Annotation:
The record is a 38-nucleotide RNA from Pelagibaculum spongiae, which matches "Selenocysteine insertion sequence 4" in Rfam. Pairs were carried over by alignment from the consensus structure, which was predicted with PFOLD.
RNA sequence: GGCACUUGUACUCGUUGCGGCGCAACGAUUCUGAAAGA
Numbered sequence: 001g002g003c004a005c006u007u008g009u010a011c012u013c014g015u016u017g018c019g020g021c022g023c024a025a026c027g028a029u030u031c032u033g034a035a036a037g038a
Stems, first nucleotide, its partner, number of pairs: 013027006

For this family Rfam cites "Molecular analysis of the grd operon coding for genes of the glycine reductase and of the thioredoxin system from Clostridium sticklandii" (Graentzdoerffer et al., Arch Microbiol, 2001).